Source information
Bacterial large signal recognition particle RNA: a 264-nucleotide RNA sequence from Lachnospiraceae bacterium 1_4_56FAA. About the family: The signal recognition particle (SRP) is a universally conserved ribonucleoprotein involved in the co-translational targeting of proteins to membranes. Rfam classes the family as a non-coding RNA gene. Taxonomically the source falls in Lachnospiraceae (Bacteria, Bacillota, Clostridia, Lachnospirales). Pairs were carried over by alignment from the consensus structure, which is taken from published work.

RNA sequence: UCGUGCAGCCGGGGUGCUAGCGGUACCUUGUACCUGCAAUCCGCUAUAGCAGGGGUGAUAUUGCGCCGAGGGUGUUGAUCUGCAAAGCUGCCCUUGAUAAGUGACGUUGAAAAUCUGGGUCUCAUGCGACGGGAAUCUGUGAACCGUGUCAGGUCGGGAACGAAGCAGCACUAAGCAGAACCUCCCGGGUGUUGUGAGGGUGCCUGGGUCGAGUUGGCUGUCAAGGUAACGUUUGUGGAGAUACAUUCGAAGCGCAAUGCACGA
Numbered sequence: 001u002c003g004u005g006c007a008g009c010c011g012g013g014g015u016g017c018u019a020g021c022g023g024u025a026c027c028u029u030g031u032a033c034c035u036g037c038a039a040u041c042c043g044c045u046a047u048a049g050c051a052g053g054g055g056u057g058a059u060a061u062u063g064c065g066c067c068g069a070g071g072g073u074g075u076u077g078a079u080c081u082g083c084a085a086a087g088c089u090g091c092c093c094u095u096g097a098u099a100a101g102u103g104a105c106g107u108u109g110a111a112a113a114u115c116u117g118g119g120u121c122u123c124a125u126g127c128g129a130c131g132g133g134a135a136u137c138u139g140u141g142a143a144c145c146g147u148g149u150c151a152g153g154u155c156g157g158g159a160a161c162g163a164a165g166c167a168g169c170a171c172u173a174a175g176c177a178g179a180a181c182c183u184c185c186c187g188g189g190u191g192u193u194g195u196g197a198g199g200g201u202g203c204c205u206g207g208g209u210c211g212a213g214u215u216g217g218c219u220g221u222c223a224a225g226g227u228a229a230c231g232u233u234u235g236u237g238g239a240g241a242u243a244c245a246u247u248c249g250a251a252g253c254g255c256a257a258u259g260c261a262c263g264a
Stems, first nucleotide, its partner, number of pairs: 001264007008056003011029008033053005061257006070248005079239008089228002093225006101218002103215003113209008121198006127189001130187005136179005146171004154163003